[Rfam]
RNA sequence: UUUAAAAGUAGAGGUCGCGUUGUUCAAUAGUAGGUUGCUGUAUGUGUCAGACACAAUUGAUGGCAGGUGAAAGGGAAUAGCGCCGAAGUAUUAAGAAACCUGAAUUCUUAAUGCUGGGCAUGCAGUUAAUAUCUGUAUGACUGUCAUCUUAAUUGAUGGAGGGCUACUUAAAGA
Dot-bracket structure: .....((((((.....(((((((((.......(.((((((....................)))))).)......)))))))))...(((((((((((.......)))))))))))((.(((((((.......))))))).)).(((((......)))))....)))))).....